[Rfam]
Nucleotides: 177
Stems, first nucleotide, its partner, number of pairs: 055125003059122002062120005069113002076107004081090003092101003
Number, partner (000 for none) and nucleotide at each position: 001000a002000g003000c004000c005000a006000c007000a008000u009000u010000a011000g012000u013000u014000u015000g016000a017000c018000u019000g020000g021000g022000a023000a024000a025000c026000u027000c028000a029000u030000c031000a032000a033000a034000u035000u036000a037000a038000u039000c040000u041000g042000a043000a044000a045000a046000c047000c048000g049000a050000g051000a052000c053000a054000g055125g056124c057123u058000u059122c060121g061000a062120u063119u064118c065117u066116c067000a068000a069113u070112g071000g072000c073000g074000g075000g076107c077106c078105a079104c080000a081090a082089c083088c084000u085000u086000c087000g088083g089082g090081u091000a092101g093100c094099a095000u096000u097000u098000a099094u100093g101092c102000c103000g104079g105078u106077g107076g108000a109000u110000u111000a112070c113069a114000a115000a116066g117065a118064g119063g120062g121060c122059g123057g124056g125055c126000a127000c128000u129000c130000a131000a132000a133000u134000c135000a136000u137000g138000u139000c140000a141000u142000a143000c144000g145000g146000a147000g148000u149000u150000u151000c152000a153000u154000c155000a156000c157000a158000u159000c160000a161000c162000u163000g164000g165000u166000g167000u168000g169000g170000c171000u172000u173000u174000a175000u176000a177000u
Bacteroidales-1 6S-Bacteroidales RNA suggested: a 177-nucleotide sequence from Bacteroides luti. Pairs were carried over by alignment from the consensus structure, which is taken from published work. Bacteroidales-1 was first reported in a comparative genomics-based approach of genome and metagenome sequences from Weinberg et al. 2010 In a high-resolution transcriptome map study of Bacteroides thetaiotaomicron, Ryan et al. 2020 report this sRNA as 6S RNA homologue of Bacteroides, in the study they obtain evidence of small product RNAs (pRNAs) related to 6S function. It scores 183 bits against the family's covariance model. On this family, see Ryan et al., Nat Commun 2020: "A high-resolution transcriptome map identifies small RNA regulation of metabolism in the gut microbe Bacteroides thetaiotaomicron". NCBI's taxonomy places the organism under Bacteria, Bacteroidota, Bacteroidales, Bacteroidaceae, Bacteroides. It is annotated as a small RNA.